The family of this 73-nucleotide RNA sequence from Equus caballus is "mir-598 microRNA precursor family". Gene Ontology terms of the family: RISC complex and miRNA-mediated post-transcriptional gene silencing. Taxonomically the source falls in Equus (Eukaryota, Sarcopterygii, Tetrapoda, Boreoeutheria). Pairs were carried over by alignment from the consensus structure, which was predicted with RNAalifold. Rfam 15.1 lists 92 matches to the family in 91 species.
[Rfam]
RNA sequence: UGAUGCUGGCAGUGAUGCCGAUGGUGCGGGCUGGAAAUGGGGUGCUACGUCAUCGUUGUCAUCGUCAUCAUCA
Numbered sequence: 001u002g003a004u005g006c007u008g009g010c011a012g013u014g015a016u017g018c019c020g021a022u023g024g025u026g027c028g029g030g031c032u033g034g035a036a037a038u039g040g041g042g043u044g045c046u047a048c049g050u051c052a053u054c055g056u057u058g059u060c061a062u063c064g065u066c067a068u069c070a071u072c073a
Base pairs, nucleotide, nucleotide: 001073002072003071004070005069007067008066009065010064012062013061014060015059019058020057021056022055023054024053025052026051027049028048029046030045031044